A member of the RNA family "Small nucleolar RNA R38" from Gadus morhua, 70 nucleotides long. The family's consensus secondary structure was predicted with PFOLD. The literature on the family includes a 2003 paper in Nucleic Acids Res by Chen et al., "The high diversity of snoRNAs in plants: identification and comparative study of 120 snoRNA genes from Oryza sativa". snoR38 is a C/D box small nucleolar RNA conserved across yeast, human, Arabidopsis and rice. It is encoded in the intron of elongation factor-1 gamma in both pombe and cerevisiae. snoR38 guides the methylation of 2'-O-ribose sites in 28S rRNA. It scores 56 bits against the family's covariance model. Rfam links the family to the GO terms nucleolus and RNA processing.
RNA sequence: GCAAGCCAGUGAUGAAAAAAGUUAUCCCUGUCUGAACAACGGUGUUGACCUAUGGUAACCUGAGGCUUGA
Numbered sequence: 001g002c003a004a005g006c007c008a009g010u011g012a013u014g015a016a017a018a019a020a021g022u023u024a025u026c027c028c029u030g031u032c033u034g035a036a037c038a039a040c041g042g043u044g045u046u047g048a049c050c051u052a053u054g055g056u057a058a059c060c061u062g063a064g065g066c067u068u069g070a
Stems, first nucleotide, its partner, number of pairs: 002069006